[Rfam]
T-box leader: a 235-nucleotide RNA sequence from Candidatus Enterococcus dunnyi. On this family, see Grundy et al., RNA 2000: "tRNA determinants for transcription antitermination of the Bacillus subtilis tyrS gene". It scores 123 bits against the family's covariance model. Pairs were carried over by alignment from the consensus structure, which is taken from published work. Rfam classes the family as a cis-regulatory leader.
RNA sequence: UUAAAUGUGAAGAUGAGGAAAGUAUUUUCUAGAUAACUUAAAGAGAGUCUCGGCUGGUGGAAAGAGAUAGUGACGAUGGAGAAGAAAAUGGCCUUUGAGCAAAUUGGUUGAACACGUUAAAACCAAUUCAGGUGCGCCUGUUAUAGCGCCUCAGUAUGAUUGUACUGAAUGAGUGGGUUUAUCAUUAAACCAAUUGAAGGUGGUACCGCGAAAGUUUACAGCUCUCGUCCUUUUU
Number, nucleotide and partner (000 for none) at each position: 001u000002u000003a000004a000005a000006u000007g100008u099009g000010a000011a000012g000013a000014u000015g095016a094017g093018g092019a000020a000021a000022g000023u000024a000025u083026u082027u081028u080029c079030u078031a000032g000033a000034u000035a000036a071037c070038u069039u000040a000041a000042a000043g000044a000045g000046a000047g068048u067049c066050u065051c064052g000053g000054c000055u000056g000057g000058u000059g000060g000061a000062a000063a000064g051065a050066g049067a048068u047069a038070g037071u036072g000073a000074c000075g000076a000077u000078g030079g029080a028081g027082a026083a025084g000085a000086a000087a000088a000089u000090g000091g000092c018093c017094u016095u015096u000097g000098a000099g008100c007101a000102a000103a127104u126105u125106g124107g123108u122109u121110g000111a000112a000113c000114a000115c000116g000117u000118u000119a000120a000121a109122a108123c107124c106125a105126a104127u103128u000129c140130a139131g138132g000133u000134g000135c000136g000137c000138c131139u130140g129141u000142u000143a000144u000145a000146g000147c000148g000149c000150c000151u000152c000153a000154g000155u000156a000157u000158g000159a000160u000161u000162g000163u000164a000165c000166u000167g000168a000169a000170u000171g000172a000173g000174u000175g000176g191177g190178u189179u188180u187181a186182u000183c000184a000185u000186u181187a180188a179189a178190c177191c176192a000193a000194u000195u000196g000197a232198a231199g230200g229201u000202g000203g000204u000205a000206c000207c000208g228209c227210g226211a225212a000213a000214g000215u000216u000217u000218a000219c000220a000221g000222c000223u000224c000225u211226c210227g209228u208229c200230c199231u198232u197233u000234u000235u000